The record is a 74-nucleotide RNA from Ameiurus melas, which matches "mir-7563 microRNA precursor family" in Rfam. Rfam 15.1 lists 362 matches to the family in 2 species. The family's consensus secondary structure was predicted with RNAalifold. Taxonomically the source falls in Ameiurus (Eukaryota, Gnathostomata, Teleostomi, Otomorpha). Gene Ontology terms of the family: RISC complex and miRNA-mediated post-transcriptional gene silencing.
[Rfam]
RNA sequence: ACCGUGUACUUGCCUACUAUAUAGUAGAUAAUAUAUGUAUUUUGCCUACUAUAUAGUAGGUAAGUACGCGGUUU
Dot-bracket structure: (((((((((((((((.(((((((((((.(((.((....)).))).))))))))))).)))))))))))))))..